[Rfam]
RNA sequence: ACCUUCAGAAUUAUCGUAGCCAAUGAGGUUUAUCCGAGGCGCGAUUAUUGCUAAUUGAAAACUUUUCCCAAUACCCCGCCAUGGCGACUUGAAAUAUAGUCAGCGUAGGCAAUUUUUGGUAGUCUCUAUGGAGA
Numbered sequence: 001a002c003c004u005u006c007a008g009a010a011u012u013a014u015c016g017u018a019g020c021c022a023a024u025g026a027g028g029u030u031u032a033u034c035c036g037a038g039g040c041g042c043g044a045u046u047a048u049u050g051c052u053a054a055u056u057g058a059a060a061a062c063u064u065u066u067c068c069c070a071a072u073a074c075c076c077c078g079c080c081a082u083g084g085c086g087a088c089u090u091g092a093a094a095u096a097u098a099g100u101c102a103g104c105g106u107a108g109g110c111a112a113u114u115u116u117u118g119g120u121a122g123u124c125u126c127u128a129u130g131g132a133g134a
Base pairs, nucleotide, nucleotide: 013045014044015043016042017041019040020039021038027035028034078110079109080108081106082105083104086101087100088099089098123134124133125132126131
RNA: U4 spliceosomal RNA